A member of the RNA family "TPP riboswitch aptamer (THI element)" from Saltatorellus ferox, 92 nucleotides long. NCBI's taxonomy places the organism under Bacteria, Pseudomonadati, Planctomycetota, Planctomycetia, Saltatorellus. The family's consensus secondary structure is taken from published work. Rfam links the family to the GO term thiamine pyrophosphate binding.

RNA sequence: AACCACCGUCGGGGGCGGCGCGCUGCGCCUGAGAAGUACCCCUUGAACCUGAUCCGGUUCGUACCGGCGUAGGAAGACCCAUGAUUGAACCU
Numbered sequence: 001a002a003c004c005a006c007c008g009u010c011g012g013g014g015g016c017g018g019c020g021c022g023c024u025g026c027g028c029c030u031g032a033g034a035a036g037u038a039c040c041c042c043u044u045g046a047a048c049c050u051g052a053u054c055c056g057g058u059u060c061g062u063a064c065c066g067g068c069g070u071a072g073g074a075a076g077a078c079c080c081a082u083g084a085u086u087g088a089a090c091c092u
Stems, first nucleotide, its partner, number of pairs: 008078003011042004016036001017029005048073004054067004